Annotation: The family of this 74-nucleotide RNA sequence from Orthonyx spaldingii is "mir-1759 microRNA precursor family". Rfam links the family to the GO terms miRNA-mediated post-transcriptional gene silencing and RISC complex. Taxonomically the source falls in Orthonyx (Eukaryota, Chordata, Sauria, Dinosauria). The base pairs follow the family's consensus structure, which was predicted with RNAalifold.
RNA sequence: GCUGUUGUAGGGUAGGAGGAGGGAGGUGUUGCCUUAUGAGCUGCCACUUCUUCCAUCCUCUCCUCUGCAGGAGC
Numbered sequence: 001g002c003u004g005u006u007g008u009a010g011g012g013u014a015g016g017a018g019g020a021g022g023g024a025g026g027u028g029u030u031g032c033c034u035u036a037u038g039a040g041c042u043g044c045c046a047c048u049u050c051u052u053c054c055a056u057c058c059u060c061u062c063c064u065c066u067g068c069a070g071g072a073g074c
Stems, first nucleotide, its partner, number of pairs: 001074003005070006011063002014059004018054002021052008030043002033040002